[Rfam]
A member of the RNA family "Small nucleolar RNA R38" from Batrachochytrium dendrobatidis, 89 nucleotides long. About the family: snoR38 is a C/D box small nucleolar RNA conserved across yeast, human, Arabidopsis and rice. It is encoded in the intron of elongation factor-1 gamma in both pombe and cerevisiae. snoR38 guides the methylation of 2'-O-ribose sites in 28S rRNA. Taxonomically the source falls in Batrachochytrium dendrobatidis (Eukaryota, chytridiomyceta, Chytridiomycota, Batrachochytrium). The literature on the family includes a 1995 paper in Trends Biochem Sci by Bachellerie et al., "Antisense snoRNAs: a family of nucleolar RNAs with long complementarities to rRNA". By type it is a C/D-box small nucleolar RNA. Its family is annotated with nucleolus and RNA processing in the Gene Ontology. It scores 49 bits against the family's covariance model.
RNA sequence: UAUCGGCUAUGAUGAAUAUCGUUUAAAAAACAGUUAUCCCUAUCUUAGCACACACAAAUUACUGCUGAUAUCUUUAUACUGAGCCUGAA
Numbered sequence: 001u002a003u004c005g006g007c008u009a010u011g012a013u014g015a016a017u018a019u020c021g022u023u024u025a026a027a028a029a030a031c032a033g034u035u036a037u038c039c040c041u042a043u044c045u046u047a048g049c050a051c052a053c054a055c056a057a058a059u060u061a062c063u064g065c066u067g068a069u070a071u072c073u074u075u076a077u078a079c080u081g082a083g084c085c086u087g088a089a
Base pairs, nucleotide, nucleotide: 001089003087005085006084007083